[Rfam]
RNA sequence: AAUCACGAGCUCCGACGUCAAACCCUGGUUGGUCGGACGGCAACCCUCUCGCUGUAGCGGGGUGCCCCAGGUGAUGAUUCGGCCACGCACCGACGGUGCGGGCAAGUACGGCGC
Numbered sequence: 001a002a003u004c005a006c007g008a009g010c011u012c013c014g015a016c017g018u019c020a021a022a023c024c025c026u027g028g029u030u031g032g033u034c035g036g037a038c039g040g041c042a043a044c045c046c047u048c049u050c051g052c053u054g055u056a057g058c059g060g061g062g063u064g065c066c067c068c069a070g071g072u073g074a075u076g077a078u079u080c081g082g083c084c085a086c087g088c089a090c091c092g093a094c095g096g097u098g099c100g101g102g103c104a105a106g107u108a109c110g111g112c113g114c
Stems, first nucleotide, its partner, number of pairs: 001079004009038001011037006021030002039066003044062003048057002082103003086100006
Dot-bracket structure: ((((....(.((((((....((......)).)))))))(((..(((.((......))..))).))).........))))..(((.((((((...)))))))))...........
RNA: SAM (S-adenosyl methionine) riboswitch aptamer
Organism: Arthrobacter sp. RIT-PI-e